[Rfam]
RNA sequence: CGGGAAAACCCUCGUUAAGGAACUCGGCAAAAUGCAUCCGUAACUUCGGGAAAAGGAUGACCCAUGUAGUGUGAAAGCUUGUAACGGCUCUAGCAUGAAUGGGUGGCACAAGAGAGGCGCAAGCGACUGUUUACCACAAACACAGGUGCCUGCUAAAGCGAAAGCUGACGUAUAGGUGCUGACACCUGCCCGGUGCUGGAAGGUUAAGAGGAGGGGUUAGGAGUAAUCCGAAGCUCUGAAUUGAAGCCCCAGUAAACGGCGGCCGUAACUAUAACGGUCCUAAGGUAGCGAAAUUCCUUGUCGGGUAAGUUCCGACCCGCACGAAAGGUGUAACGACUUGCGCACUGUCUCAACGAGGGACCCG
Number, nucleotide and partner (000 for none) at each position: 001c364002g363003g362004g361005a000006a000007a000008a000009c359010c358011c357012u356013c355014g354015u353016u352017a000018a350019g349020g348021a000022a000023c000024u000025c000026g000027g000028c000029a000030a000031a000032a000033u000034g000035c059036a058037u057038c056039c055040g000041u000042a000043a000044c049045u000046u000047c000048g000049g044050g000051a000052a000053a000054a000055g039056g038057a037058u036059g035060a104061c103062c102063c101064a100065u099066g000067u000068a000069g000070u000071g000072u000073g000074a000075a000076a000077g088078c087079u086080u000081g000082u000083a000084a000085c000086g079087g078088c077089u000090c000091u000092a000093g000094c000095a000096u000097g000098a000099a065100u064101g063102g062103g061104u060105g109106g000107c000108a000109c105110a000111a000112g000113a000114g000115a000116g000117g343118c342119g341120c340121a339122a338123g337124c335125g334126a000127c000128u142129g141130u140131u000132u000133a000134c000135c000136a000137c000138a000139a000140a130141c129142a128143c000144a000145g180146g179147u178148g177149c176150c175151u174152g173153c170154u000155a000156a000157a166158g165159c164160g000161a000162a000163a000164g159165c158166u157167g000168a000169c000170g153171u000172a000173u152174a151175g150176g149177u148178g147179c146180u145181g000182a000183c330184a329185c328186c327187u000188g260189c259190c258191c000192g000193g257194u256195g253196c252197u251198g250199g249200a000201a000202g248203g247204u246205u000206a000207a000208g242209a241210g000211g000212a000213g237214g236215g235216g234217u233218u000219a000220g229221g228222a000223g000224u000225a000226a000227u000228c221229c220230g000231a000232a000233g217234c216235u215236c214237u213238g000239a000240a000241u209242u208243g000244a000245a000246g204247c203248c202249c199250c198251a197252g196253u195254a000255a000256a194257c193258g190259g189260c188261g279262g278263c277264c276265g275266u274267a000268a000269c000270u000271a000272u000273a000274a266275c265276g264277g263278u262279c261280c284281u000282a000283a000284g280285g000286u000287a000288g000289c000290g317291a000292a000293a000294u000295u000296c000297c000298u000299u000300g316301u315302c314303g313304g312305g311306u000307a000308a000309g000310u000311u305312c304313c303314g302315a301316c300317c290318c000319g000320c000321a000322c000323g000324a000325a000326a000327g186328g185329u184330g183331u000332a000333a000334c125335g124336a000337c123338u122339u121340g120341c119342g118343c117344a000345c000346u000347g000348u020349c019350u018351c000352a016353a015354c014355g013356a012357g011358g010359g009360a000361c004362c003363c002364g001
RNA: Bacterial large subunit ribosomal RNA, nucleotides 1676 to 2039